[Rfam]
RNA sequence: UAGAUGUAGAAGGAGAUUCUUUCAGCCCAACCAUGGAUAGAACAAAAAGGGAGUAGAAAUAUCUGCCGACUCAUCCAUCCAAACAUUUGUGGUACAAAGAAUAAAAUUUUAAGCCACAGUGACUGUAUGAAUGAUGCGGGAGAUGUUUUUACCUCUUUAUCUGUGUUUGGACUGAAGGGAGCUCCUUCUCUUUCUAUG
Numbered sequence: 001u002a003g004a005u006g007u008a009g010a011a012g013g014a015g016a017u018u019c020u021u022u023c024a025g026c027c028c029a030a031c032c033a034u035g036g037a038u039a040g041a042a043c044a045a046a047a048a049g050g051g052a053g054u055a056g057a058a059a060u061a062u063c064u065g066c067c068g069a070c071u072c073a074u075c076c077a078u079c080c081a082a083a084c085a086u087u088u089g090u091g092g093u094a095c096a097a098a099g100a101a102u103a104a105a106a107u108u109u110u111a112a113g114c115c116a117c118a119g120u121g122a123c124u125g126u127a128u129g130a131a132u133g134a135u136g137c138g139g140g141a142g143a144u145g146u147u148u149u150u151a152c153c154u155c156u157u158u159a160u161c162u163g164u165g166u167u168u169g170g171a172c173u174g175a176a177g178g179g180a181g182c183u184c185c186u187u188c189u190c191u192u193u194c195u196a197u198g
Stems, first nucleotide, its partner, number of pairs: 013184003017180004023174003027170003036161001063142002066139003072133003080125001
The record is a 198-nucleotide RNA sequence from Brassica cretica, which matches "MIR159 microRNA precursor family" in Rfam. Taxonomically the source falls in Brassica (Eukaryota, eudicotyledons, Brassicales, Brassiceae). Gene Ontology terms of the family: RISC complex and miRNA-mediated post-transcriptional gene silencing. Pairs were carried over by alignment from the consensus structure, which was predicted with WAR. On this family, see Jones-Rhoades and Bartel, Mol Cell 2004: "Computational identification of plant microRNAs and their targets, including a stress-induced miRNA".